[Rfam]
RNA sequence: UUCGUGCGGCAGCACGGCCAUAAUCUUCCCCAUGUUGCUCACAACUGCCUUGUCAUUAUUUUGGCAAUGUACGCGGUUGUUGGAGUGUCAGGCCGUGUUCUGAGCAAUUCGGACGUCUUAGCACCCAUUGACAUUGCUCUCUUUCUUGCAAGGGGCGAUGUUGGGUUGGUGGUUCGUACAUAU
Numbered sequence: 001u002u003c004g005u006g007c008g009g010c011a012g013c014a015c016g017g018c019c020a021u022a023a024u025c026u027u028c029c030c031c032a033u034g035u036u037g038c039u040c041a042c043a044a045c046u047g048c049c050u051u052g053u054c055a056u057u058a059u060u061u062u063g064g065c066a067a068u069g070u071a072c073g074c075g076g077u078u079g080u081u082g083g084a085g086u087g088u089c090a091g092g093c094c095g096u097g098u099u100c101u102g103a104g105c106a107a108u109u110c111g112g113a114c115g116u117c118u119u120a121g122c123a124c125c126c127a128u129u130g131a132c133a134u135u136g137c138u139c140u141c142u143u144u145c146u147u148g149c150a151a152g153g154g155g156c157g158a159u160g161u162u163g164g165g166u167u168g169g170u171g172g173u174u175c176g177u178a179c180a181u182a183u
Base pairs, nucleotide, nucleotide: 022099023098024097025095037086038085039084040083045076046075047074048073110176111175112174113173114172128164129163131161132160133159134158135157136156137155139153140152
small nucleolar RNA snR35: a 183-nucleotide sequence from Pleurotus eryngii. The match comes from Rfam's covariance-model search (37 bits). For this family Rfam cites "Identification and functional analysis of 20 Box H/ACA small nucleolar RNAs (snoRNAs) from Schizosaccharomyces pombe" (Li et al., J Biol Chem, 2005). Rfam links the family to the GO terms RNA processing and nucleolus. Lineage of the source: Eukaryota > Opisthokonta > Agaricomycotina > Pleurotaceae > Pleurotus.